Description:
The family of this 101-nucleotide RNA from Eucalyptus grandis is "Small nucleolar RNA Z152/R70/R12/". Its family is annotated with RNA processing and nucleolus in the Gene Ontology. On this family, see Barneche et al., J Mol Biol 2001: "Identification of 66 box C/D snoRNAs in Arabidopsis thaliana: extensive gene duplications generated multiple isoforms predicting new ribosomal RNA 2'-O-methylation sites". Taxonomically the source falls in Eucalyptus (Eukaryota, Streptophytina, Gunneridae, malvids). The family's consensus secondary structure was predicted with PFOLD.

RNA sequence: AUUGCAGUGAUGAGAUUAAGGCACCCGAGGGGGUGUCGAUGGGCAGUGGAUCAAUCCGUGAGCCCGAAUUUAUAAAACGACUUCUCCUUCCACUGAGCAAC
Numbered sequence: 001a002u003u004g005c006a007g008u009g010a011u012g013a014g015a016u017u018a019a020g021g022c023a024c025c026c027g028a029g030g031g032g033g034u035g036u037c038g039a040u041g042g043g044c045a046g047u048g049g050a051u052c053a054a055u056c057c058g059u060g061a062g063c064c065c066g067a068a069u070u071u072a073u074a075a076a077a078c079g080a081c082u083u084c085u086c087c088u089u090c091c092a093c094u095g096a097g098c099a100a101c
Stems, first nucleotide, its partner, number of pairs: 002100004